mraW RNA: a 117-nucleotide sequence from Leptobrachium leishanense. Lineage of the source: Eukaryota > Opisthokonta > Eumetazoa > Deuterostomia > Leptobrachium. Rfam classes the family as a cis-regulatory element.
[Rfam]
RNA sequence: AUGUCCUCCCGCAUUCACCUCCGUCCGAUCGUGGUGUCCUGCUUCCCUUCUCUCGAGAAGGGAACCAGGAAGCAGGACGCCGCAAUCGGACGGAGGUGAAUGCGAUUGCGUGAGUAC
Numbered sequence: 001a002u003g004u005c006c007u008c009c010c011g012c013a014u015u016c017a018c019c020u021c022c023g024u025c026c027g028a029u030c031g032u033g034g035u036g037u038c039c040u041g042c043u044u045c046c047c048u049u050c051u052c053u054c055g056a057g058a059a060g061g062g063a064a065c066c067a068g069g070a071a072g073c074a075g076g077a078c079g080c081c082g083c084a085a086u087c088g089g090a091c092g093g094a095g096g097u098g099a100a101u102g103c104g105a106u107u108g109c110g111u112g113a114g115u116a117c
Stems, first nucleotide, its partner, number of pairs: 010104008019095011031083015
Dot-bracket structure: .........((((((((.(((((((((((.(((((((((((((((.......................))))))))))))))).))))))))))).)))))))).............